[Rfam]
The family of this 118-nucleotide RNA sequence is "LOOT RNA". By type it is a small RNA. Pairs were carried over by alignment from the consensus structure, which is taken from published work.
RNA sequence: CGCCUAAACCCAGCAGCAAUGCCGGGCAUGGCUCAAAAACGAUUGCGCGUAUUAAGCUCCUAGUCAGAGCACGCGCAAUCGUCAUAUCUCGAAAGGGGUAUGGGUCCCGCAAGGGAUC
Numbered sequence: 001c002g003c004c005u006a007a008a009c010c011c012a013g014c015a016g017c018a019a020u021g022c023c024g025g026g027c028a029u030g031g032c033u034c035a036a037a038a039a040c041g042a043u044u045g046c047g048c049g050u051a052u053u054a055a056g057c058u059c060c061u062a063g064u065c066a067g068a069g070c071a072c073g074c075g076c077a078a079u080c081g082u083c084a085u086a087u088c089u090c091g092a093a094a095g096g097g098g099u100a101u102g103g104g105u106c107c108c109g110c111a112a113g114g115g116a117u118c
Base pairs, nucleotide, nucleotide: 002032003031004030009026010025011024013022014021015020040081041080042079043078044077045076046075047074048073049072050071056070057069058068059067083102084101085100086099087098088097089096090095103118104117105116106115107114108113